[Rfam]
RNA sequence: UGGCGGGGGAGCACCGCAACGGGAGGAGCGUGCGGUUUAAUUGGAUUCAACGCCGGAAAACUCACCGGGAGCGACCUUCGGAUGAGGGUCAACCUGACGAAUUUACCCGAUAGAAGGAGAGGUGGUGCAUGGCCGUCGUCAGCUCGUACCGUAGGGCGUUCACUUAAGUGUGAUAACGAGCAAGACCCCCAUCUCUAAUUGCCAGACUGUCUUUGCGGGCAGAGGCACUUUAGAGGGACCGCCAGCGCUAAGCUGGAGGAAGGAGGGGUCGACGGCAGGUCAGUACGCCCCGAAUCUCCCGGGCUACACGCGCGCUACAAAGGACGGGACAAUGAGUUGCAACCUCGAAAGGGGAAGCUAACCUCGAAACCCGUUCGUAGUCAGGACUGAGGGCUGUAACUCGCCCUCACGAAUGUGGAUUCCGUAGUAAUCGUAGGUCAACAGCCUACGGUGAAUAUGCCCCUGCUCCUUGCACACACCGCCCGUCAAACCAUCCGAGCUGGUGUUGGAUGAGGGUCCGUCCUCUGGAUGGAUUCGAAUCUGAUGUCAGUGAGGAGGGUUAAGUCGUAACAAGGUAUCCGUAGGGGAACCUGCGGAUGG
Numbered sequence: 001u002g003g004c005g006g007g008g009g010a011g012c013a014c015c016g017c018a019a020c021g022g023g024a025g026g027a028g029c030g031u032g033c034g035g036u037u038u039a040a041u042u043g044g045a046u047u048c049a050a051c052g053c054c055g056g057a058a059a060a061c062u063c064a065c066c067g068g069g070a071g072c073g074a075c076c077u078u079c080g081g082a083u084g085a086g087g088g089u090c091a092a093c094c095u096g097a098c099g100a101a102u103u104u105a106c107c108c109g110a111u112a113g114a115a116g117g118a119g120a121g122g123u124g125g126u127g128c129a130u131g132g133c134c135g136u137c138g139u140c141a142g143c144u145c146g147u148a149c150c151g152u153a154g155g156g157c158g159u160u161c162a163c164u165u166a167a168g169u170g171u172g173a174u175a176a177c178g179a180g181c182a183a184g185a186c187c188c189c190c191a192u193c194u195c196u197a198a199u200u201g202c203c204a205g206a207c208u209g210u211c212u213u214u215g216c217g218g219g220c221a222g223a224g225g226c227a228c229u230u231u232a233g234a235g236g237g238a239c240c241g242c243c244a245g246c247g248c249u250a251a252g253c254u255g256g257a258g259g260a261a262g263g264a265g266g267g268g269u270c271g272a273c274g275g276c277a278g279g280u281c282a283g284u285a286c287g288c289c290c291c292g293a294a295u296c297u298c299c300c301g302g303g304c305u306a307c308a309c310g311c312g313c314g315c316u317a318c319a320a321a322g323g324a325c326g327g328g329a330c331a332a333u334g335a336g337u338u339g340c341a342a343c344c345u346c347g348a349a350a351g352g353g354g355a356a357g358c359u360a361a362c363c364u365c366g367a368a369a370c371c372c373g374u375u376c377g378u379a380g381u382c383a384g385g386a387c388u389g390a391g392g393g394c395u396g397u398a399a400c401u402c403g404c405c406c407u408c409a410c411g412a413a414u415g416u417g418g419a420u421u422c423c424g425u426a427g428u429a430a431u432c433g434u435a436g437g438u439c440a441a442c443a444g445c446c447u448a449c450g451g452u453g454a455a456u457a458u459g460c461c462c463c464u465g466c467u468c469c470u471u472g473c474a475c476a477c478a479c480c481g482c483c484c485g486u487c488a489a490a491c492c493a494u495c496c497g498a499g500c501u502g503g504u505g506u507u508g509g510a511u512g513a514g515g516g517u518c519c520g521u522c523c524u525c526u527g528g529a530u531g532g533a534u535u536c537g538a539a540u541c542u543g544a545u546g547u548c549a550g551u552g553a554g555g556a557g558g559g560u561u562a563a564g565u566c567g568u569a570a571c572a573a574g575g576u577a578u579c580c581g582u583a584g585g586g587g588a589a590c591c592u593g594c595g596g597a598u599g600g
Stems, first nucleotide, its partner, number of pairs: 001476002003473003007470007016460002020424005025318001027316008035307002041056004065302007075117004080111001087107003091103002121291002124289004130285002132280003135276004142181006149156002160173004187268004192236007202225002207222006239259002242256005322376007334365003339358002343354004383414001388409007430452008479574001481571001484567002487564001489561004494556003499551013514536010576599010
A member of the RNA family "Archaeal small subunit ribosomal RNA" from Thermoplasma acidophilum, 600 nucleotides of a longer RNA. Taxonomically the source falls in Thermoplasma (Archaea, Methanobacteriati, Thermoplasmatota, Thermoplasmatales). The family is grouped with related families in Rfam's "SSU clan". Rfam's curators put it in the seed alignment.